[Rfam]
RNA: Fluoride riboswitch aptamer (crcB RNA motif)
RNA sequence: UGUAAACUAGGUGAUGGAUUCGCCUUUAAAUGCUUGAAUGCUAAUGACUCCUACAGAAUA
Numbered sequence: 001u002g003u004a005a006a007c008u009a010g011g012u013g014a015u016g017g018a019u020u021c022g023c024c025u026u027u028a029a030a031u032g033c034u035u036g037a038a039u040g041c042u043a044a045u046g047a048c049u050c051c052u053a054c055a056g057a058a059u060a
Stems, first nucleotide, its partner, number of pairs: 010024004016051003019047002032041002